The family of this 48-nucleotide RNA from Barbeya oleoides is "Plastid-rpl16 group II-D1 intron".
It is one of the family's seed sequences.
The literature on the family includes a 2023 paper in Plant Commun by Richter et al., "Retrograde signaling in plants: A critical review focusing on the GUN pathway and beyond".
The organism belongs to Barbeya, within Eukaryota.
Rfam links the family to the GO term Group II intron splicing.
The family has 538 seed sequences and 1,446 matches in Rfam 15.1.

RNA sequence: AAGAGCCGCGAGCCAAUCAAGACUGAUAAAAUUGACUCAAGAACAAAU
Numbered sequence: 001a002a003g004a005g006c007c008g009c010g011a012g013c014c015a016a017u018c019a020a021g022a023c024u025g026a027u028a029a030a031a032u033u034g035a036c037u038c039a040a041g042a043a044c045a046a047a048u
Base pairs, nucleotide, nucleotide: 007041010038011037012036014034015033016032017031
Dot-bracket structure: ......(..(((.((((.............)))).)))..).......